A member of the RNA family "TPP riboswitch aptamer (THI element)" from Agrilactobacillus composti, 108 nucleotides long. Its family is annotated with thiamine pyrophosphate binding in the Gene Ontology. The base pairs follow the family's consensus structure, which is taken from published work. Lineage of the source: Bacteria > Bacilli > Lactobacillales > Lactobacillaceae > Agrilactobacillus composti.

[Rfam]
RNA sequence: ACAAAACACUAGGGAUGUUGCCGUGAGCAACUGAGAUGGGCCUGUUGGGCUCGGCCCCUUGGAACCUGUAAGUUAGUGCUUGCGUAGGGAAUGUGUGCUUAGAUGAUC
Numbered sequence: 001a002c003a004a005a006a007c008a009c010u011a012g013g014g015a016u017g018u019u020g021c022c023g024u025g026a027g028c029a030a031c032u033g034a035g036a037u038g039g040g041c042c043u044g045u046u047g048g049g050c051u052c053g054g055c056c057c058c059u060u061g062g063a064a065c066c067u068g069u070a071a072g073u074u075a076g077u078g079c080u081u082g083c084g085u086a087g088g089g090a091a092u093g094u095g096u097g098c099u100u101a102g103a104u105g106a107u108c
Stems, first nucleotide, its partner, number of pairs: 006096004011059004016053001017031005038052005065088004069082004